[Rfam]
RNA: Betacoronavirus 3'UTR
Organism: Betacoronavirus hipposideri
RNA sequence: UCUGAAAUCUGAAAAAUUCGCAAGUAGUAAGGCGUAGUAUACCCUACCAGUAGGACUGGGUUGCUAUUCCUACACUUGUGCUGAAUGGAUUCUAUGUAUAGUGUAGCACAAGAAGACACUAUACACGUUUACUAUCACUGUCUUUGACAUUUAGUGUAUAGUUGAUUGGAGUAAUUACAAAGAAUACACACCGAGGCCACGCCGAGUAGGAACGAGGGUACAGUGUGAAAAGCCGAUGUCAAUGACCGGAAGAGCCAAUCAAUGUAAAAUUAAUAAUCAAAGAACCCCCAGUGAUUUUAAUAGCUUUUUAGUAGAAUUGC
Number, nucleotide and partner (000 for none) at each position: 001u000002c000003u000004g000005a000006a000007a000008u000009c000010u000011g000012a000013a000014a000015a000016a000017u000018u000019c000020g000021c078022a077023a076024g075025u074026a000027g000028u000029a000030a000031g070032g069033c000034g067035u066036a065037g000038u063039a062040u000041a000042c000043c054044c053045u052046a000047c000048c000049a000050g000051u000052a045053g044054g043055a000056c000057u000058g000059g000060g000061u000062u039063g038064c000065u036066a035067u034068u000069c032070c031071u000072a000073c000074a025075c024076u023077u022078g021079u000080g000081c000082u000083g000084a000085a000086u000087g000088g318089a317090u316091u315092c314093u313094a312095u125096g124097u123098a122099u121100a120101g119102u118103g117104u116105a000106g000107c000108a000109c000110a000111a000112g000113a000114a000115g000116a104117c103118a102119c101120u100121a099122u098123a097124c096125a095126c000127g000128u000129u000130u299131a298132c000133u000134a295135u294136c293137a292138c291139u290140g000141u283142c282143u281144u280145u279146g278147a000148c000149a274150u273151u272152u000153a000154g000155u000156g000157u000158a000159u000160a000161g000162u262163u261164g260165a259166u258167u257168g256169g255170a000171g000172u000173a000174a000175u000176u000177a000178c000179a000180a000181a000182g000183a000184a000185u230186a000187c000188a000189c225190a224191c223192c000193g000194a000195g000196g000197c000198c000199a000200c000201g000202c000203c000204g000205a000206g000207u000208a000209g000210g000211a000212a000213c000214g000215a000216g000217g000218g000219u000220a000221c000222a000223g191224u190225g189226u000227g000228a000229a000230a185231a000232g000233c249234c248235g247236a000237u000238g000239u000240c000241a000242a000243u000244g000245a000246c000247c235248g234249g233250a000251a000252g000253a000254g000255c169256c168257a167258a166259u165260c164261a163262a162263u000264g000265u000266a000267a000268a000269a000270u000271u000272a151273a150274u149275a000276a000277u000278c146279a145280a144281a143282g142283a141284a000285c000286c000287c000288c000289c000290a139291g138292u137293g136294a135295u134296u000297u000298u131299a130300a000301u000302a000303g000304c311305u310306u000307u000308u000309u000310a305311g304312u094313a093314g092315a091316a090317u089318u088319g000320c000